[Rfam]
RNA sequence: GCACCUGCCUCUUUGCUAUUCCUCGCUGUGCAGGGCUGGGGGUGCUGCAGCACAGCAGUGGAAAUCCAGAUGGGUUUUCUGGUUUGGGACUCAUCUCUGCACCUCUGCAACACCA
Numbered sequence: 001g002c003a004c005c006u007g008c009c010u011c012u013u014u015g016c017u018a019u020u021c022c023u024c025g026c027u028g029u030g031c032a033g034g035g036c037u038g039g040g041g042g043u044g045c046u047g048c049a050g051c052a053c054a055g056c057a058g059u060g061g062a063a064a065u066c067c068a069g070a071u072g073g074g075u076u077u078u079c080u081g082g083u084u085u086g087g088g089a090c091u092c093a094u095c096u097c098u099g100c101a102c103c104u105c106u107g108c109a110a111c112a113c114c115a
Stems, first nucleotide, its partner, number of pairs: 001045005016039003021034002055108004060103001068096008079087003
RNA: Small nucleolar RNA SNORA55
Organism: Menura novaehollandiae